[Rfam]
RNA sequence: AUAGAAAAGGAGCCGAAUCUUCAUAGUACGGGGGAACCAAAUAGAUUCAACAGGGGAUAAUCCGCAAAAGCGGAGGGGCGUGUUCUCAAUUCUCUCUUUUCCCUAUCCCGACAGCUAACCCCGGAGGCUUAAGACCGGUGCGGA
Numbered sequence: 001a002u003a004g005a006a007a008a009g010g011a012g013c014c015g016a017a018u019c020u021u022c023a024u025a026g027u028a029c030g031g032g033g034g035a036a037c038c039a040a041a042u043a044g045a046u047u048c049a050a051c052a053g054g055g056g057a058u059a060a061u062c063c064g065c066a067a068a069a070g071c072g073g074a075g076g077g078g079c080g081u082g083u084u085c086u087c088a089a090u091u092c093u094c095u096c097u098u099u100u101c102c103c104u105a106u107c108c109c110g111a112c113a114g115c116u117a118a119c120c121c122c123g124g125a126g127g128c129u130u131a132a133g134a135c136c137g138g139u140g141c142g143g144a
Base pairs, nucleotide, nucleotide: 011129012128013127014126019026020025029123030122031121032120033119038053054109055108056107062073063072064071065070076103077102078101